A member of the RNA family "Glycine riboswitch aptamer" from Limnobacter sp. MED105, 98 nucleotides long.
Nucleotides: 098
Base pairs, nucleotide, nucleotide: 001098002097003096004095011043012042013041014040015039016038017037045087046086047085048083049082052081053080054079058074059073060072061071062070
Number, partner (000 for none) and nucleotide at each position: 001098u002097c003096u004095g005000g006000a007000g008000a009000g010000c011043g012042c013041u014040g015039u016038g017037c018000g019000c020000g021000g022000c023000c024000a025000a026000u027000c028000g029000c030000c031000u032000c033000g034000u035000a036000a037017g038016u039015a040014c041013a042012g043011c044000c045087g046086c047085c048083g049082a050000a051000g052081a053080g054079g055000c056000a057000a058074g059073c060072a061071a062070c063000g064000c065000a066000a067000u068000c069000c070062g071061u072060u073059g074058u075000g076000a077000a078000u079054c080053u081052u082049u083048c084000a085047g086046g087045c088000a089000a090000a091000u092000g093000g094000a095004c096003a097002g098001a
Gene Ontology term of the family: glycine biosynthetic process.